[Rfam]
RNA sequence: CUAGCUCUGGGUAGCUCUUGUAUCAAUGUGGUAGAACCUACAAAUAACGUAACAGGAAGCUGAAAAAUUCUUGGUGAGCACGCCCUCCGGCUUGUACGAUCGAGGGAAGCCUAAAAGGAAUUUCAGAGGCAUCCACUUUUAAAGAGUGGGUUUCUCCUAUUUCAUGACUGCCCAGGGUGUUC
Numbered sequence: 001c002u003a004g005c006u007c008u009g010g011g012u013a014g015c016u017c018u019u020g021u022a023u024c025a026a027u028g029u030g031g032u033a034g035a036a037c038c039u040a041c042a043a044a045u046a047a048c049g050u051a052a053c054a055g056g057a058a059g060c061u062g063a064a065a066a067a068u069u070c071u072u073g074g075u076g077a078g079c080a081c082g083c084c085c086u087c088c089g090g091c092u093u094g095u096a097c098g099a100u101c102g103a104g105g106g107a108a109g110c111c112u113a114a115a116a117g118g119a120a121u122u123u124c125a126g127a128g129g130c131a132u133c134c135a136c137u138u139u140u141a142a143a144g145a146g147u148g149g150g151u152u153u154c155u156c157c158u159a160u161u162u163c164a165u166g167a168c169u170g171c172c173c174a175g176g177g178u179g180u181u182c
Stems, first nucleotide, its partner, number of pairs: 010182002014178002017176003028160004033155003036151003055134003059130003065123008078110002083106005

A member of the RNA family "6S / SsrS RNA" from Fluviispira multicolorata, 182 nucleotides long. It scores 49 bits against the family's covariance model. Pairs were carried over by alignment from the consensus structure, which is taken from published work. Rfam classes the family as a non-coding RNA gene. The organism belongs to Fluviispira, within Bacteria.